Shown here is a 154-nucleotide RNA from Diplocarpon coronariae, a member of the family "U4 spliceosomal RNA". U4 small nuclear RNA (U4 snRNA) is a component of the major U2-dependent spliceosome. Pairs were carried over by alignment from the consensus structure, which is taken from published work.

RNA sequence: AUCUUCGUGCAUGGGUUUUAGGCAUACCAGCGAGGAUCCGUCCGAGACUGCGUUCUUGCUCGUUGAAUUCUAUUACCAUGACCGCUCAUGCCUGGCUUCGGCCGGGUGAGGAAUGUUUGGAACACCCAGCUCGUCUGCGAGACGGCACGAGGGC
Numbered sequence: 001a002u003c004u005u006c007g008u009g010c011a012u013g014g015g016u017u018u019u020a021g022g023c024a025u026a027c028c029a030g031c032g033a034g035g036a037u038c039c040g041u042c043c044g045a046g047a048c049u050g051c052g053u054u055c056u057u058g059c060u061c062g063u064u065g066a067a068u069u070c071u072a073u074u075a076c077c078a079u080g081a082c083c084g085c086u087c088a089u090g091c092c093u094g095g096c097u098u099c100g101g102c103c104g105g106g107u108g109a110g111g112a113a114u115g116u117u118u119g120g121a122a123c124a125c126c127c128a129g130c131u132c133g134u135c136u137g138c139g140a141g142a143c144g145g146c147a148c149g150a151g152g153g154c
Stems, first nucleotide, its partner, number of pairs: 020053001022051003028046001034043003086111002089108008125153003